[Rfam]
RNA sequence: AAAGUAAGAUAUGUAAUCGCGGCUGGCAGGACCGAAAGGGGCCAGGUGAGGAAAGUCCGGGCUUCGCAGGGCAGGGUGCCGGAUAACGUCCGGCGGAGGUGACUCCAGGGAUAGUGCAACAGAGAGAUACCGCCAGGUUUUUCCUGGUAAGGGUGGAAAGGCAGUGUAAGAGACUACCGUUUCUCUGGUAACAGAGAAAGCCAUGUAAACCCCAUCCGAAGCAAGACCGAAUAGAAAACGUAUAUGGCUGCCCGUCAUGUUUUCAGGUGGGUCGCUUAAGGGGACUGGCGACAGUUCCAUUGGAUAGAUGAUUACACACGACAUAACCCGGCUUAUCGUUUUGCUUUGCUU
Number, nucleotide and partner (000 for none) at each position: 001a347002a346003a345004g344005u343006a342007a341008g340009a339010u338011a336012u316013g315014u314015a313016a312017u311018c310019g000020c048021g047022g000023c045024u044025g043026g042027c041028a000029g000030g000031a000032c000033c000034g000035a000036a000037a000038g000039g000040g000041g027042c026043c025044a024045g023046g000047u021048g020049a000050g000051g000052a000053a334054a333055g332056u000057c331058c330059g329060g328061g327062c221063u220064u219065c218066g000067c000068a000069g253070g252071g251072c250073a000074g217075g216076g215077u214078g213079c093080c092081g091082g090083a089084u000085a000086a000087c000088g000089u083090c082091c081092g080093g079094c108095g106096g105097a104098g103099g000100u000101g000102a000103c098104u097105c096106c095107a000108g094109g212110g211111a000112u000113a000114g210115u209116g206117c205118a204119a000120c000121a000122g000123a000124g000125a000126g000127a000128u000129a000130c152131c151132g148133c147134c146135a145136g144137g143138u000139u000140u000141u000142u000143c137144c136145u135146g134147g133148u132149a000150a000151g131152g130153g000154u000155g000156g000157a000158a000159a000160g178161g177162c000163a175164g174165u173166g000167u000168a000169a000170g000171a000172g000173a165174c164175u163176a000177c161178c160179g201180u199181u198182u197183c196184u195185c194186u193187g192188g000189u000190a000191a000192c187193a186194g185195a184196g183197a182198a181199a180200g000201c179202c000203a000204u118205g117206u116207a000208a000209a115210c114211c110212c109213c078214a077215u076216c075217c074218g065219a064220a063221g062222c000223a000224a000225g273226a272227c271228c270229g000230a000231a000232u000233a000234g264235a263236a262237a261238a260239c259240g000241u000242a000243u000244a258245u257246g256247g255248c254249u000250g072251c071252c070253c069254g248255u247256c246257a245258u244259g239260u238261u237262u236263u235264c234265a000266g000267g000268u000269g000270g228271g227272u226273c225274g000275c000276u000277u000278a000279a000280g000281g298282g297283g296284a295285c294286u293287g292288g000289c000290g000291a000292c287293a286294g285295u284296u283297c282298c281299a000300u000301u000302g000303g000304a000305u000306a000307g000308a000309u000310g018311a017312u016313u015314a014315c013316a012317c000318a000319c000320g000321a000322c000323a000324u000325a000326a000327c061328c060329c059330g058331g057332c055333u054334u053335a000336u011337c000338g010339u009340u008341u007342u006343g005344c004345u003346u002347u001348g000349c000350u000351u000
Rfam assigns this 351-nucleotide RNA from Blautia sp. CAG:37 to the family "Bacterial RNase P class A".
The match comes from Rfam's covariance-model search (297 bits).
About the family: Ribonuclease P (RNase P) is a ubiquitous endoribonuclease, found in archaea, bacteria and eukarya as well as chloroplasts and mitochondria.
The family's RNA type in Rfam is ribozyme.
Rfam links the family to the GO terms ribonuclease P activity, dimeric ribonuclease P complex and tRNA processing.
Pairs were carried over by alignment from the consensus structure, which is taken from published work.